The family of this 361-nucleotide part of an RNA from uncultured bacterium HF0770_45N15 is "Bacterial large subunit ribosomal RNA". The family's consensus secondary structure is taken from published work. Rfam's curators put it in the seed alignment.
[Rfam]
RNA sequence: CGGGUGAGAGCGCGUUAAGGAACUCUGCAAGAUGGCUCCGUAACUUCGGGAGAAGGAGUGCCCGCGUCAGGUGAAGGGGCUUGCCCCUGGAGCCGAGGCGGGCCGCAGUGACCAGGCCCAGCCGACUGUUUAGCAAAAACACAGCCCUCCGCAAACCCGCAAGGGGACGUAUGGGGGGUGACGCCUGCCCGGUGCCGGAAGGUCAAGGGGAGAGGUCAGCGCAAGCGAAGCCUUGAACUGAAGCCCCGGUGAACGGCGGCCGUAACUAUAACGGUCCUAAGGUAGCGAAAUUCCUUGUCGGGUAAGUUCCGACCUGCACGAAUGGCGUAACGAUCUGGGUGCUGUCUCAACGCGCCGCCCG
Number, nucleotide and partner (000 for none) at each position: 001c361002g360003g359004g358005u000006g000007a000008g000009a000010g355011c354012g353013c352014g351015u350016u349017a000018a347019g346020g345021a000022a000023c000024u000025c000026u000027g000028c000029a000030a000031g000032a000033u000034g000035g059036c058037u057038c056039c055040g000041u000042a000043a000044c049045u000046u000047c000048g000049g044050g000051a000052g000053a000054a000055g039056g038057a037058g036059u035060g103061c102062c101063c100064g099065c098066g000067u000068c000069a000070g000071g000072u000073g000074a000075a088076g087077g086078g085079g084080c000081u000082u000083g000084c079085c078086c077087c076088u075089g000090g000091a000092g000093c000094c000095g000096a000097g000098g065099c064100g063101g062102g061103c060104c108105g000106c000107a000108g104109u000110g000111a000112c000113c000114a000115g000116g340117c339118c338119c337120a336121g335122c000123c332124g331125a000126c000127u141128g140129u139130u000131u000132a000133g000134c000135a000136a000137a000138a000139a129140c128141a127142c000143a000144g179145c178146c177147c176148u175149c174150c173151g172152c169153a000154a000155a000156c165157c164158c163159g000160c000161a000162a000163g158164g157165g156166g000167a000168c000169g152170u000171a000172u151173g150174g149175g148176g147177g146178g145179u144180g000181a000182c327183g326184c325185c324186u000187g257188c256189c255190c000191g000192g254193u253194g250195c249196c248197g247198g246199a000200a000201g245202g244203u243204c000205a000206a000207g239208g238209g000210g000211a000212g234213a233214g232215g231216u230217c000218a000219g226220c225221g000222c000223a000224a000225g220226c219227g000228a000229a000230g216231c215232c214233u213234u212235g000236a000237a000238c208239u207240g000241a000242a000243g203244c202245c201246c198247c197248g196249g195250u194251g000252a000253a193254c192255g189256g188257c187258g276259g275260c274261c273262g272263u271264a000265a000266c000267u000268a000269u000270a000271a263272c262273g261274g260275u259276c258277c281278u000279a000280a000281g277282g000283u000284a000285g000286c000287g314288a000289a000290a000291u000292u000293c000294c000295u000296u000297g313298u312299c311300g310301g309302g308303u000304a000305a000306g000307u000308u302309c301310c300311g299312a298313c297314c287315u000316g000317c000318a000319c000320g000321a000322a000323u000324g185325g184326c183327g182328u000329a000330a000331c124332g123333a000334u000335c121336u120337g119338g118339g117340u116341g000342c000343u000344g000345u020346c019347u018348c000349a016350a015351c014352g013353c012354g011355c010356c000357g000358c004359c003360c002361g001